[Rfam]
RNA sequence: CAAGCGGACCGGGCCCCUCUGACGACAUGAAGAUGUCGUGAUGUCGGACCGCAUCG
Numbered sequence: 001c002a003a004g005c006g007g008a009c010c011g012g013g014c015c016c017c018u019c020u021g022a023c024g025a026c027a028u029g030a031a032g033a034u035g036u037c038g039u040g041a042u043g044u045c046g047g048a049c050c051g052c053a054u055c056g
Stems, first nucleotide, its partner, number of pairs: 006050002009047004022039007

terC RNA: a 56-nucleotide RNA sequence from Gemmobacter fulvus. Taxonomically the source falls in Gemmobacter (Bacteria, Pseudomonadota, Alphaproteobacteria, Paracoccaceae). A search with the family's covariance model found it, with a score of 60 bits. Rfam classes the family as a cis-regulatory element.